Rfam assigns this 72-nucleotide RNA from Polarella glacialis to the family "tRNA". The base pairs follow the family's consensus structure, which is taken from published work. Rfam's curators write: Transfer RNA (tRNA) molecules are approximately 80 nucleotides in length.

[Rfam]
RNA sequence: GGGCUCAUGGUGUAGUGGUAUCACAUCCGCUCUGCAUGCGGAAGGCCCUGGGUUCAAUCCUCAGUGGGUCCA
Numbered sequence: 001g002g003g004c005u006c007a008u009g010g011u012g013u014a015g016u017g018g019u020a021u022c023a024c025a026u027c028c029g030c031u032c033u034g035c036a037u038g039c040g041g042a043a044g045g046c047c048c049u050g051g052g053u054u055c056a057a058u059c060c061u062c063a064g065u066g067g068g069u070c071c072a
Stems, first nucleotide, its partner, number of pairs: 001071007010024003026042005048064005